[Rfam]
Nucleotides: 083
Base pairs, nucleotide, nucleotide: 003081004080006078007077008076009075010074011073013058014057015056022052023051024050025049026048027047028046029045037070038069039066040065041064042063043062
Number, partner (000 for none) and nucleotide at each position: 001000u002000c003081g004080g005000c006078u007077g008076g009075u010074a011073g012000a013058g014057g015056c016000c017000u018000a019000g020000a021000u022052u023051u024050c025049c026048g027047u028046u029045c030000c031000u032000u033000g034000u035000c036000u037070g038069g039066g040065c041064a042063c043062c044000g045029g046028g047027g048026c049025g050024g051023a052022g053000g054000g055000a056015g057014c058013c059000a060000g061000u062043g063042g064041u065040g066039c067000a068000a069038c070037c071000g072000u073011c074010u075009a076008c077007c078006g079000u080004u081003u082000u083000u